[Rfam]
RNA sequence: UGGCCGAUUUUGGCACUAGCACAUUUUUGCUUGUCUCUCCGCUCUGAGCAAUCAUGUGCAGUGCCAAUAUGGGAGA
Numbered sequence: 001u002g003g004c005c006g007a008u009u010u011u012g013g014c015a016c017u018a019g020c021a022c023a024u025u026u027u028u029g030c031u032u033g034u035c036u037c038u039c040c041g042c043u044c045u046g047a048g049c050a051a052u053c054a055u056g057u058g059c060a061g062u063g064c065c066a067a068u069a070u071g072g073g074a075g076a
Stems, first nucleotide, its partner, number of pairs: 004073002007070002010067008019059006027051006